[Rfam]
RNA sequence: AGAUCAUAAGUUUGAGGCCAUAGCAGAAGUGCUCAUGGAGUGGCCCAGUUAGAUCCCAAAGAAUCUACAAAUUCUGCU
Numbered sequence: 001a002g003a004u005c006a007u008a009a010g011u012u013u014g015a016g017g018c019c020a021u022a023g024c025a026g027a028a029g030u031g032c033u034c035a036u037g038g039a040g041u042g043g044c045c046c047a048g049u050u051a052g053a054u055c056c057c058a059a060a061g062a063a064u065c066u067a068c069a070a071a072u073u074c075u076g077c078u
Stems, first nucleotide, its partner, number of pairs: 014046001016045004022078007029041002050067005056061001
The record is a 78-nucleotide RNA from Crocodylus porosus, which matches "Mammalian CPEB3 ribozyme" in Rfam. NCBI's taxonomy places the organism under Eukaryota, Chordata, Craniata, Dipnotetrapodomorpha, Crocodylus. A search with the family's covariance model found it, with a score of 41 bits. Pairs were carried over by alignment from the consensus structure, which is taken from published work.